[Rfam]
Shown here is an 80-nucleotide RNA, a member of the family "pemK RNA".
RNA sequence: ACAAUGAUACUUCCGCCCAGCCACAGUUCACACAAUGGGGGCGGCUCGGAGAGAUCCUCGGAGGAGUGCAAUUCUCAUGG
Numbered sequence: 001a002c003a004a005u006g007a008u009a010c011u012u013c014c015g016c017c018c019a020g021c022c023a024c025a026g027u028u029c030a031c032a033c034a035a036u037g038g039g040g041g042c043g044g045c046u047c048g049g050a051g052a053g054a055u056c057c058u059c060g061g062a063g064g065a066g067u068g069c070a071a072u073u074c075u076c077a078u079g080g
Base pairs, nucleotide, nucleotide: 012077013044014043015042016041017040018039045063046062047061049059050058051057064076065075066074